Glycine riboswitch aptamer: a 104-nucleotide RNA sequence from Jannaschia sp. CCS1.
RNA sequence: ACGCAACCGUAGGGAGACUCUUGGGCGCGCAAACCACGCGCACCCCAGGGCCGAAGGAGCAACCGCCCCGGUAAACUCUCAGGCAAACGGACCUGUGGUUGUGG
Numbered sequence: 001a002c003g004c005a006a007c008c009g010u011a012g013g014g015a016g017a018c019u020c021u022u023g024g025g026c027g028c029g030c031a032a033a034c035c036a037c038g039c040g041c042a043c044c045c046c047a048g049g050g051c052c053g054a055a056g057g058a059g060c061a062a063c064c065g066c067c068c069c070g071g072u073a074a075a076c077u078c079u080c081a082g083g084c085a086a087a088c089g090g091a092c093c094u095g096u097g098g099u100u101g102u103g104g
Base pairs, nucleotide, nucleotide: 006099007098008097009096010095011094012093013092020048021047023045024044025043050084051083052082053080054079057078058077059076063071064070
Dot-bracket structure: .....((((((((......((.(((.................))).)).(((((..(((...((.....))....))))).))).......)))))))).....